[Rfam]
RNA sequence: GGCCGGGAGGGUGACGGAUACAACACCCGAAAGGGGAAGAAGUCCGCCGUGCAGGCACGGUUCUUAACCUCCCGGCCACCAAUUU
Numbered sequence: 001g002g003c004c005g006g007g008a009g010g011g012u013g014a015c016g017g018a019u020a021c022a023a024c025a026c027c028c029g030a031a032a033g034g035g036g037a038a039g040a041a042g043u044c045c046g047c048c049g050u051g052c053a054g055g056c057a058c059g060g061u062u063c064u065u066a067a068c069c070u071c072c073c074g075g076c077c078a079c080c081a082a083u084u085u
Base pairs, nucleotide, nucleotide: 001077002076003075004074005073006072007071008070009069013044014043015042026035027034028033046061047060048059049058050057
RNA: sRNA-Xcc1
Organism: Azomonas macrocytogenes